[Rfam]
RNA sequence: UGGUAGAUGCACCCUGAUAACUCACCCCCCUAGUUGGUUGCCACCCGCUGGGGGAUUUUUUU
Numbered sequence: 001u002g003g004u005a006g007a008u009g010c011a012c013c014c015u016g017a018u019a020a021c022u023c024a025c026c027c028c029c030c031u032a033g034u035u036g037g038u039u040g041c042c043a044c045c046c047g048c049u050g051g052g053g054g055a056u057u058u059u060u061u062u
Base pairs, nucleotide, nucleotide: 002013003012004011027054028053029052030051031050032049033048034047036045037044